[Rfam]
RNA sequence: GCAUGGGUGAAUUCUGCAUUGGCUGUUGCAAUGGCUAAUGGAGUCAGACACCAUGCAAGAAUAAAACUUGCCUCAGAUUUGUCUAGUGACAUGCUGUCCUUAAGCAGUAUGCACGAGUCUGAAAAGGAUACGCAA
Numbered sequence: 001g002c003a004u005g006g007g008u009g010a011a012u013u014c015u016g017c018a019u020u021g022g023c024u025g026u027u028g029c030a031a032u033g034g035c036u037a038a039u040g041g042a043g044u045c046a047g048a049c050a051c052c053a054u055g056c057a058a059g060a061a062u063a064a065a066a067c068u069u070g071c072c073u074c075a076g077a078u079u080u081g082u083c084u085a086g087u088g089a090c091a092u093g094c095u096g097u098c099c100u101u102a103a104g105c106a107g108u109a110u111g112c113a114c115g116a117g118u119c120u121g122a123a124a125a126g127g128a129u130a131c132g133c134a135a
Stems, first nucleotide, its partner, number of pairs: 001056006014043002017040003069128001071126001073122005084116001086114003090111007
This 135-nucleotide sequence from Laticauda laticaudata belongs to the Rfam family "Small nucleolar RNA SNORA15". The source organism's lineage runs through Eukaryota, Tetrapoda, Unidentata, Laticaudinae and Laticauda. A search with the family's covariance model found it, with a score of 55 bits. A reference for the family is Huttenhofer et al. (2001), "RNomics: an experimental approach that identifies 201 candidates for novel, small, non-messenger RNAs in mouse", EMBO J. About the family: ACA15 is a member of the H/ACA class of snoRNA that guide the sites of modification of uridines to pseudouridines. By type it is an H/ACA-box small nucleolar RNA. Rfam links the family to the GO terms RNA processing and nucleolus. The base pairs follow the family's consensus structure, which was predicted with RNAfold.